[Rfam]
RNA: Bacterial large subunit ribosomal RNA, nucleotides 674 to 901
RNA sequence: GACUUAAAGUAGUGGGCAAGCUUAAGCCGAUAGGUGGAGGCGCAGCGAAAGCGAGUCUGAACAGGGCGUUCAGUCCGCUGCUUUAGACCCGAAACCGAGUGAUCUAGCCAUGUGCAGGAUGAAGGUGGGGUAACACCCACUGGAGGUCCGAACCAGUGCCCGUUGAAAAGGUCUUGGAUGACGUGUGGCUAGGGGUGAAAGGCCAAUCAAACUCGGAAAUAGCUGGUU
Numbered sequence: 001g002a003c004u005u006a007a008a009g010u011a012g013u014g015g016g017c018a019a020g021c022u023u024a025a026g027c028c029g030a031u032a033g034g035u036g037g038a039g040g041c042g043c044a045g046c047g048a049a050a051g052c053g054a055g056u057c058u059g060a061a062c063a064g065g066g067c068g069u070u071c072a073g074u075c076c077g078c079u080g081c082u083u084u085a086g087a088c089c090c091g092a093a094a095c096c097g098a099g100u101g102a103u104c105u106a107g108c109c110a111u112g113u114g115c116a117g118g119a120u121g122a123a124g125g126u127g128g129g130g131u132a133a134c135a136c137c138c139a140c141u142g143g144a145g146g147u148c149c150g151a152a153c154c155a156g157u158g159c160c161c162g163u164u165g166a167a168a169a170g171g172u173c174u175u176g177g178a179u180g181a182c183g184u185g186u187g188g189c190u191a192g193g194g195g196u197g198a199a200a201g202g203c204c205a206a207u208c209a210a211a212c213u214c215g216g217a218a219a220u221a222g223c224u225g226g227u228u
Stems, first nucleotide, its partner, number of pairs: 005085013020041004026035003045052002055067004088226002091223001095216006104192011115180001117149004124141006153177003158173001160171002194204003